RNA sequence: CCGAGGAGGAACGCAACGGGCUUUGCCCGUUUCGGAAUGCGUUCCUCCGACGUGCCCCAGAGCGAACGCGAAAGGGUGAUACCCGCG
Numbered sequence: 001c002c003g004a005g006g007a008g009g010a011a012c013g014c015a016a017c018g019g020g021c022u023u024u025g026c027c028c029g030u031u032u033c034g035g036a037a038u039g040c041g042u043u044c045c046u047c048c049g050a051c052g053u054g055c056c057c058c059a060g061a062g063c064g065a066a067c068g069c070g071a072a073a074g075g076g077u078g079a080u081a082c083c084c085g086c087g
Stems, first nucleotide, its partner, number of pairs: 008045006015031006054077003062069002
Source information: The record is an 87-nucleotide RNA sequence, which matches "GA-cis RNA" in Rfam. By type it is a small RNA.